[Rfam]
RNA sequence: GGAGACUCUUAAGAGUUUCCCUUCACUCCUCACACCACACUCCGCCCGGACCUUUUUAGUUUGGGCGGUU
Dot-bracket structure: ((((((((....))))))))......................(((((((((.......)))))))))...
Overview: Cyanobacterial functional RNA 1: a 70-nucleotide RNA from Trichodesmium erythraeum. NCBI's taxonomy places the organism under Bacteria, Bacillati, Oscillatoriales, Microcoleaceae, Trichodesmium erythraeum.